This 71-nucleotide RNA belongs to the Rfam family "Small nucleolar RNA SNORD99".
The family is grouped with related families in Rfam's "SNORD58 clan".
The base pairs follow the family's consensus structure, which was predicted with RNAalifold.
On this family, see Huttenhofer et al., EMBO J 2001: "RNomics: an experimental approach that identifies 201 candidates for novel, small, non-messenger RNAs in mouse".
RNA sequence: GCUGUGCGUGGAUGAAUCUCUUUUCUUGAGACUGUUGGAUGAAUCUUGCGGAUAUGGGACUGAGCGCAGCC
Dot-bracket structure: (((((............................................................))))).